Shown here is a 402-nucleotide RNA from Rhizobium sp. Leaf371, a member of the family "Bacterial RNase P class A". The family's RNA type in Rfam is ribozyme. It scores 317 bits against the family's covariance model. Taxonomically the source falls in Rhizobium (Bacteria, Pseudomonadati, Pseudomonadota, Rhizobiaceae).

RNA sequence: CCAGUCGGCCGGGCAGCCGCUCUCCGCUAUGACCGAAAGGUUGCGGGGGGAGGAAAGUCCGGGCUCCACGGAAAAACGGUGCCGGAUAACGUCCGGCGAGGGCGACCUCAGGGAAAGUGCCACAGAAAGCAAACCGCCCGCGUUUACGCGGGUAAGGGUGAAAGGGUGGGGUAAGAGCCCACCGCGCGUCUGGUAACAGGGGCGGCACGGUAAACCCCACCGGGAGCAAGACCGAAUAGGGAUGACGUGGCAGCCGCAAGGCUGCCGGCCUGUUCCGGGCCAGUCAUCCGGGUGGGUUGCAUGAGGCGGCGCGCGAGCGUCGUCCCAGAUGAAUGGCUGCCACGUUCCGGUCCUCAACCGGCCGGAGCCAUACAGAACCCGGCUUACAGGCCGACUGGCGUU
Numbered sequence: 001c002c003a004g005u006c007g008g009c010c011g012g013g014c015a016g017c018c019g020c021u022c023u024c025c026g027c028u029a030u031g032a033c034c035g036a037a038a039g040g041u042u043g044c045g046g047g048g049g050g051a052g053g054a055a056a057g058u059c060c061g062g063g064c065u066c067c068a069c070g071g072a073a074a075a076a077c078g079g080u081g082c083c084g085g086a087u088a089a090c091g092u093c094c095g096g097c098g099a100g101g102g103c104g105a106c107c108u109c110a111g112g113g114a115a116a117g118u119g120c121c122a123c124a125g126a127a128a129g130c131a132a133a134c135c136g137c138c139c140g141c142g143u144u145u146a147c148g149c150g151g152g153u154a155a156g157g158g159u160g161a162a163a164g165g166g167u168g169g170g171g172u173a174a175g176a177g178c179c180c181a182c183c184g185c186g187c188g189u190c191u192g193g194u195a196a197c198a199g200g201g202g203c204g205g206c207a208c209g210g211u212a213a214a215c216c217c218c219a220c221c222g223g224g225a226g227c228a229a230g231a232c233c234g235a236a237u238a239g240g241g242a243u244g245a246c247g248u249g250g251c252a253g254c255c256g257c258a259a260g261g262c263u264g265c266c267g268g269c270c271u272g273u274u275c276c277g278g279g280c281c282a283g284u285c286a287u288c289c290g291g292g293u294g295g296g297u298u299g300c301a302u303g304a305g306g307c308g309g310c311g312c313g314c315g316a317g318c319g320u321c322g323u324c325c326c327a328g329a330u331g332a333a334u335g336g337c338u339g340c341c342a343c344g345u346u347c348c349g350g351u352c353c354u355c356a357a358c359c360g361g362c363c364g365g366a367g368c369c370a371u372a373c374a375g376a377a378c379c380c381g382g383c384u385u386a387c388a389g390g391c392c393g394a395c396u397g398g399c400g401u402u
Base pairs, nucleotide, nucleotide: 001398002397003396004395005394006393007392008391009390010389011387012341013340014339015338016337017336018335020050021049022048023047024046025045026044027043055385056384057383059382060381061380062379063378064226065225066224067223074274075273077222078221079220080219081218082096083095084094085093086092097111098109099108100107101106112217113216117215118214119211120210121209134157135156136153137152138151139150140149141148142147165183166182167181168180169179170178184206185204186203187202189200190199191198192197230298231297232296233295240289241288242287243286244285245284267281268280269279270278271277305324306323307322308321309320310319311318312317